RNA sequence: CAGGCAUCUAAGCUGUCUGUCAUAGCAACAGUUUAAACAGGAGGUGCUGGCAGCAAGCAAUGUCAUCCCCUUUGGGGGCUAGAGCUGUGCCCCUCGAAGUGAAUUGGAAGGCUCUCUACCC
Numbered sequence: 001c002a003g004g005c006a007u008c009u010a011a012g013c014u015g016u017c018u019g020u021c022a023u024a025g026c027a028a029c030a031g032u033u034u035a036a037a038c039a040g041g042a043g044g045u046g047c048u049g050g051c052a053g054c055a056a057g058c059a060a061u062g063u064c065a066u067c068c069c070c071u072u073u074g075g076g077g078g079c080u081a082g083a084g085c086u087g088u089g090c091c092c093c094u095c096g097a098a099g100u101g102a103a104u105u106g107g108a109a110g111g112c113u114c115u116c117u118a119c120c121c
Stems, first nucleotide, its partner, number of pairs: 003048007011033006017025002059113001061111001063109001070099005075093005
Notes:
This 121-nucleotide RNA sequence from Myotis myotis belongs to the Rfam family "Small nucleolar RNA SNORA68". Its family is annotated with RNA processing and nucleolus in the Gene Ontology. From the family's description: U68 is a member of the H/ACA class of small nucleolar RNAs (snoRNAs) which act as guides in the the modification of uridines to pseudouridines. On this family, see Ganot et al., Genes Dev 1997: "The family of box ACA small nucleolar RNAs is defined by an evolutionarily conserved secondary structure and ubiquitous sequence elements essential for RNA accumulation". A search with the family's covariance model found it, with a score of 45 bits. Rfam 15.1 lists 1,079 matches to the family in 643 species.